[Rfam]
Nucleotides: 059
Stems, first nucleotide, its partner, number of pairs: 005055006015044001019045001021042003024037004
Number, partner (000 for none) and nucleotide at each position: 001000a002000u003000u004000a005055g006054g007053a008052g009051u010050a011000g012000a013000a014000g015044c016000u017000g018000u019045c020000a021042g022041g023040c024037g025036a026035u027034u028000c029000a030000c031000c032000c033000g034027a035026a036025u037024c038000u039000c040023g041022c042021c043000a044015g045019g046000u047000c048000a049000u050010u051009g052008c053007u054006c055005c056000a057000u058000u059000u

Xanthine riboswitch aptamer (NMT1 RNA): a 59-nucleotide RNA from Marinomonas posidonica. On this family, see Yu and Breaker, RNA 2020: "A bacterial riboswitch class senses xanthine and uric acid to regulate genes associated with purine oxidation". Pairs were carried over by alignment from the consensus structure, which is taken from published work. The source organism's lineage runs through Bacteria, Pseudomonadota, Oceanospirillales, Oceanospirillaceae and Marinomonas posidonica.